RNA sequence: CAACCGCCGGAACAAUCAAUAAUAAGGCUAAGCCGGGUACCAGCAUUGCCAGAGCCCAAACGCCCCAGUCAAGAUUUACCCCUAAAAUCUUGGCGGCAAAAUCAGCGGCUAACAGAUUCGGAGCCAUCGCCGUAAUAAACAUAAAGCUGCUGACUUUCAUGACAAAGUAGAUAUUGGACAUCAAAUAAGAGCCCGCUUUCUUUGCCGUAUCACCGGGCUCUGAACCCAGCGCUUUUACCACUGAAAGAAUAAU
Numbered sequence: 001c002a003a004c005c006g007c008c009g010g011a012a013c014a015a016u017c018a019a020u021a022a023u024a025a026g027g028c029u030a031a032g033c034c035g036g037g038u039a040c041c042a043g044c045a046u047u048g049c050c051a052g053a054g055c056c057c058a059a060a061c062g063c064c065c066c067a068g069u070c071a072a073g074a075u076u077u078a079c080c081c082c083u084a085a086a087a088u089c090u091u092g093g094c095g096g097c098a099a100a101a102u103c104a105g106c107g108g109c110u111a112a113c114a115g116a117u118u119c120g121g122a123g124c125c126a127u128c129g130c131c132g133u134a135a136u137a138a139a140c141a142u143a144a145a146g147c148u149g150c151u152g153a154c155u156u157u158c159a160u161g162a163c164a165a166a167g168u169a170g171a172u173a174u175u176g177g178a179c180a181u182c183a184a185a186u187a188a189g190a191g192c193c194c195g196c197u198u199u200c201u202u203u204g205c206c207g208u209a210u211c212a213c214c215g216g217g218c219u220c221u222g223a224a225c226c227c228a229g230c231g232c233u234u235u236u237a238c239c240a241c242u243g244a245a246a247g248a249a250u251a252a253u
Stems, first nucleotide, its partner, number of pairs: 006063002019029001035044001048055002066247001069244002073128003081123001082121002085118002090112005096106002129150002132147002167238005174229004181223003189220007

The family of this 253-nucleotide RNA from Budvicia aquatica is "Yersinia sRNA 283". About the family: Identified in transcriptional profiling by RNA seq. A search with the family's covariance model found it, with a score of 214 bits. The base pairs follow the family's consensus structure, which was predicted with RNAfold.